[Rfam]
RNA sequence: GGUGGUCUGAAGGUAGUGAGUUUUCUCAACUGAUUGUUCAGUCCGUUACAGAUCUAAAUCCUUGUUCUACUCUUUUCCCCUUCUCACUGCUGCAAUUGACUAGUCUUAA
Numbered sequence: 001g002g003u004g005g006u007c008u009g010a011a012g013g014u015a016g017u018g019a020g021u022u023u024u025c026u027c028a029a030c031u032g033a034u035u036g037u038u039c040a041g042u043c044c045g046u047u048a049c050a051g052a053u054c055u056a057a058a059u060c061c062u063u064g065u066u067c068u069a070c071u072c073u074u075u076u077c078c079c080c081u082u083c084u085c086a087c088u089g090c091u092g093c094a095a096u097u098g099a100c101u102a103g104u105c106u107u108a109a
Stems, first nucleotide, its partner, number of pairs: 001104001003102005009097002013093002015088006040071003045067001